[Rfam]
RNA sequence: CUGUCAGGUGGGAUAACCCUUCCCUGUUCCUCCGUUUGGAGGGCAGAUAGAACAUGAUGACUGGAGAUGCAUGAAAUGUGACUAAUGUCUCUGUGUAAUCAGGACUUGCAACACCCUGAUUGCUCCUAUCUGAU
Numbered sequence: 001c002u003g004u005c006a007g008g009u010g011g012g013a014u015a016a017c018c019c020u021u022c023c024c025u026g027u028u029c030c031u032c033c034g035u036u037u038g039g040a041g042g043g044c045a046g047a048u049a050g051a052a053c054a055u056g057a058u059g060a061c062u063g064g065a066g067a068u069g070c071a072u073g074a075a076a077u078g079u080g081a082c083u084a085a086u087g088u089c090u091c092u093g094u095g096u097a098a099u100c101a102g103g104a105c106u107u108g109c110a111a112c113a114c115c116c117u118g119a120u121u122g123c124u125c126c127u128a129u130c131u132g133a134u
Stems, first nucleotide, its partner, number of pairs: 024046003028043006073091002076088003079084001095123009
Dot-bracket structure: .......................(((.((((((....)))))))))..........................((.((((....).))).))...(((((((((...........)))))))))...........

U8 small nucleolar RNA: a 134-nucleotide sequence from Homo sapiens. The family has 55 seed sequences and 1,597 matches in Rfam 15.1.